[Rfam]
RNA sequence: GGCCUCCCUCUGUGGGGUGAUCAAUUGUGGGGCCCCAGAUUGAUCACCCCGCAGAGGAAAGCC
Numbered sequence: 001g002g003c004c005u006c007c008c009u010c011u012g013u014g015g016g017g018u019g020a021u022c023a024a025u026u027g028u029g030g031g032g033c034c035c036c037a038g039a040u041u042g043a044u045c046a047c048c049c050c051g052c053a054g055a056g057g058a059a060a061g062c063c
Base pairs, nucleotide, nucleotide: 001063002062003061005059007057008056009055010054011053012052013051014050015049016048017047018046019045020044021043022042023041024040025039026038028037029036030035
Shown here is a 63-nucleotide sequence from Myotis davidii, a member of the family "mir-9242 microRNA precursor family". Taxonomically the source falls in Myotis (Eukaryota, Metazoa, Vertebrata, Yangochiroptera).